[Rfam]
RNA sequence: ACAGCAAGCGUAAAUUUUGCUGUAAGCCUGCAGAUGCAGGUGAAUCAACUGAUAGAAGGAAGAAAUCGAUG
Number, nucleotide and partner (000 for none) at each position: 001a000002c022003a021004g020005c019006a018007a017008g016009c000010g000011u000012a000013a000014a000015u000016u008017u007018u006019g005020c004021u003022g002023u000024a000025a000026g041027c040028c039029u038030g037031c000032a000033g000034a000035u000036g000037c030038a029039g028040g027041u026042g000043a000044a000045u000046c000047a000048a000049c000050u000051g000052a000053u000054a000055g000056a000057a000058g000059g000060a000061a000062g000063a000064a000065a000066u000067c000068g000069a000070u000071g000

osmY RNA: a 71-nucleotide sequence from Duffyella gerundensis. The family's consensus secondary structure is taken from published work. The organism belongs to Duffyella, within Bacteria. Rfam classes the family as a small RNA.